[Rfam]
RNA: CRISPR RNA direct repeat element
Nucleotides: 037
Base pairs, nucleotide, nucleotide: 002034003033004032005031009026012023013022014021
Number, partner (000 for none) and nucleotide at each position: 001000g002034u003033c004032g005031a006000g007000a008000c009026g010000g011000a012023c013022u014021g015000a016000a017000a018000a019000c020000c021014c022013a023012g024000a025000a026009u027000a028000g029000g030000a031005u032004u033003g034002a035000a036000a037000c